[Rfam]
RNA: Small nucleolar RNA SNORA17
RNA sequence: CCUGCUCCCAGGGUCGUUGCAGGUAAUGGCUUCUGGGUCACGUGUGGGUCAGUAGGUGGCAGAGAGGAGAAAGGCUACAUCUAUGCUAUGUGCUCUGACCUGUGAACAUCUGAACAAUUAAGAGCCUAACAUU
Numbered sequence: 001c002c003u004g005c006u007c008c009c010a011g012g013g014u015c016g017u018u019g020c021a022g023g024u025a026a027u028g029g030c031u032u033c034u035g036g037g038u039c040a041c042g043u044g045u046g047g048g049u050c051a052g053u054a055g056g057u058g059g060c061a062g063a064g065a066g067g068a069g070a071a072a073g074g075c076u077a078c079a080u081c082u083a084u085g086c087u088a089u090g091u092g093c094u095c096u097g098a099c100c101u102g103u104g105a106a107c108a109u110c111u112g113a114a115c116a117a118u119u120a121a122g123a124g125c126c127u128a129a130c131a132u133u
Base pairs, nucleotide, nucleotide: 002062003061004060005059006058007056008055010053013050015048020046021045024042027040028039029038030037069130072127073126074125075124076123084116085115087113090110091108092107094105095104